A member of the RNA family "Streptomyces sRNA 4677" from Streptomyces paludis, 265 nucleotides long.
Rfam's curators write: Located in the intergenic region between anti-sigma factor SCO4677 gene and a putative regulatory protein gene SCO4676. scr4677 expression requires the SCO4677 activity and scr4677 sRNA itself seem to affect the levels of the SCO4676-associated transcripts.
A search with the family's covariance model found it, with a score of 163 bits.
The source organism's lineage runs through Bacteria, Bacillati, Actinomycetes, Kitasatosporales and Streptomyces.
A reference for the family is Hindra et al. (2014), "Complex intra-operonic dynamics mediated by a small RNA in Streptomyces coelicolor", PLoS One.
The base pairs follow the family's consensus structure.

RNA sequence: GGUUCCGGUGGUUCGGGUGGUCCCUCCAAGGACGUGACGGAGAGAAAGAACCCCUACCAAGCCCCACCCCACCCGCCCGUCGUUCACACUCACUCGGGCGGGUGAACAUCCCUGGUUUUGGUGGAUUUCGUGUGUGGUGACUGCCUUACGCUCUGCGAGAGCACAGACACACCAGACACACCCACCGACGACAUACGUCGGCCCCCGGCCGGGACGCUGAAUCCCGAUCGAGGGCCUGACCACCGCGGAAGAAGAGAGCUUCCUG
Numbered sequence: 001g002g003u004u005c006c007g008g009u010g011g012u013u014c015g016g017g018u019g020g021u022c023c024c025u026c027c028a029a030g031g032a033c034g035u036g037a038c039g040g041a042g043a044g045a046a047a048g049a050a051c052c053c054c055u056a057c058c059a060a061g062c063c064c065c066a067c068c069c070c071a072c073c074c075g076c077c078c079g080u081c082g083u084u085c086a087c088a089c090u091c092a093c094u095c096g097g098g099c100g101g102g103u104g105a106a107c108a109u110c111c112c113u114g115g116u117u118u119u120g121g122u123g124g125a126u127u128u129c130g131u132g133u134g135u136g137g138u139g140a141c142u143g144c145c146u147u148a149c150g151c152u153c154u155g156c157g158a159g160a161g162c163a164c165a166g167a168c169a170c171a172c173c174a175g176a177c178a179c180a181c182c183c184a185c186c187g188a189c190g191a192c193a194u195a196c197g198u199c200g201g202c203c204c205c206c207g208g209c210c211g212g213g214a215c216g217c218u219g220a221a222u223c224c225c226g227a228u229c230g231a232g233g234g235c236c237u238g239a240c241c242a243c244c245g246c247g248g249a250a251g252a253a254g255a256g257a258g259c260u261u262c263c264u265g
Stems, first nucleotide, its partner, number of pairs: 007244004016077004090105006120173004200236005206230002211225004247263005